Shown here is a 197-nucleotide RNA from Rhododendron simsii, a member of the family "U2 spliceosomal RNA".
A search with the family's covariance model found it, with a score of 124 bits.
The organism belongs to Rhododendron, within Eukaryota.
Rfam's curators write: U2 is a small nuclear RNA (snRNA) component of the spliceosome (involved in pre-mRNA splicing).
RNA sequence: AUACCUUUCUUGGCCUUUUGGCUAAGAUCAAGGGUAGUAUAUGUUCUUAUCAGUCUAACAUCUGAAUAAGUAGGCCAUCAGCUCACAUGGUAUUAAAUUAAUAUUUAGAGGGGGAGAGCCCUUCACAGUAGCUUGCUGCUGGGUUUUCGAGCGUUGCCUUUGGCUUUGCACUACAGCCUUCACUUGUUGCACCCCAC
Dot-bracket structure: .......(((.((((....)))).)))....................((((((........)))).)).((.(((.....))).))...........................((((((((......((((....)))).))))))))..(((.((.....(((...........)))......)).))).......